[Rfam]
RNA sequence: AACAUAUAAUCGCUUAAUUUCCGUCAAGGAAAACGGGGGAACCAAUGAUGAUGUUGCUUGGUUAGUACAGGUAUACAUCAUAUGGGGUGAAUCCUGAUGGUAGACUAUUGUUUAUUGUUUACUAUCGGGUAGGGCAACUCUCACUGUCCGAAUCCGACAGCUAACCACGUAAGCGUUGAUUGAGGGAGGU
Numbered sequence: 001a002a003c004a005u006a007u008a009a010u011c012g013c014u015u016a017a018u019u020u021c022c023g024u025c026a027a028g029g030a031a032a033a034c035g036g037g038g039g040a041a042c043c044a045a046u047g048a049u050g051a052u053g054u055u056g057c058u059u060g061g062u063u064a065g066u067a068c069a070g071g072u073a074u075a076c077a078u079c080a081u082a083u084g085g086g087g088u089g090a091a092u093c094c095u096g097a098u099g100g101u102a103g104a105c106u107a108u109u110g111u112u113u114a115u116u117g118u119u120u121a122c123u124a125u126c127g128g129g130u131a132g133g134g135c136a137a138c139u140c141u142c143a144c145u146g147u148c149c150g151a152a153u154c155c156g157a158c159a160g161c162u163a164a165c166c167a168c169g170u171a172a173g174c175g176u177u178g179a180u181u182g183a184g185g186g187a188g189g190u
Stems, first nucleotide, its partner, number of pairs: 011175004018032005033170003037166002043084002085155003093129013132149004